[Rfam]
Rfam assigns this 85-nucleotide RNA from Polynucleobacter victoriensis to the family "Glycine riboswitch aptamer". The match comes from Rfam's covariance-model search (61 bits).
RNA sequence: AUUGCAUCGAUGGGAGAGUUUGGUUUACCCAACGCCGAAGGCGCAAUGCCCAUGAACGCUCAGGCAAAUGGACCGUCGAUAUUUA
Numbered sequence: 001a002u003u004g005c006a007u008c009g010a011u012g013g014g015a016g017a018g019u020u021u022g023g024u025u026u027a028c029c030c031a032a033c034g035c036c037g038a039a040g041g042c043g044c045a046a047u048g049c050c051c052a053u054g055a056a057c058g059c060u061c062a063g064g065c066a067a068a069u070g071g072a073c074c075g076u077c078g079a080u081a082u083u084u085a
Stems, first nucleotide, its partner, number of pairs: 006080008020032004034065003037061002041059003047052001

Overview:
The organism belongs to Polynucleobacter, within Bacteria. Pairs were carried over by alignment from the consensus structure. This family represents the bacterial glycine riboswitch. Glycine riboswitches usually consist of two metabolite-binding aptamers domains with similar structures in tandem.